[Rfam]
Overview: A member of the RNA family "Glycine riboswitch aptamer" from Novosphingobium sediminicola, 101 nucleotides long. NCBI's taxonomy places the organism under Bacteria, Pseudomonadati, Alphaproteobacteria, Sphingomonadales, Novosphingobium.
RNA sequence: CUGAACGAUGCGGGAGAGUUCGGGUGAUUCGCAAGAAUUGCCCGGCGCCGAAGGAGCAACCGCCCCGGAAUCUCUCAGGCAAUAAGGACCGUGUCGGUCAA
Numbered sequence: 001c002u003g004a005a006c007g008a009u010g011c012g013g014g015a016g017a018g019u020u021c022g023g024g025u026g027a028u029u030c031g032c033a034a035g036a037a038u039u040g041c042c043c044g045g046c047g048c049c050g051a052a053g054g055a056g057c058a059a060c061c062g063c064c065c066c067g068g069a070a071u072c073u074c075u076c077a078g079g080c081a082a083u084a085a086g087g088a089c090c091g092u093g094u095c096g097g098u099c100a101a
Stems, first nucleotide, its partner, number of pairs: 006096008020045008047080003050076002054074003060068002